About this RNA: The family of this 59-nucleotide sequence from [Limnothrix rosea] IAM M-220 is "Nitrogen stress-induced RNA 1". A reference for the family is Ionescu et al. (2010), "Heterocyst-specific transcription of NsiR1, a non-coding RNA encoded in a tandem array of direct repeats in cyanobacteria", J Mol Biol.
[Rfam]
RNA sequence: UGGUAGAUGCACCCUGAUUGAUAUCCUCGGCUAAAUAGUCUCGGCUGAGGAUUUUUUUU
Numbered sequence: 001u002g003g004u005a006g007a008u009g010c011a012c013c014c015u016g017a018u019u020g021a022u023a024u025c026c027u028c029g030g031c032u033a034a035a036u037a038g039u040c041u042c043g044g045c046u047g048a049g050g051a052u053u054u055u056u057u058u059u
Stems, first nucleotide, its partner, number of pairs: 002013003024051009034041001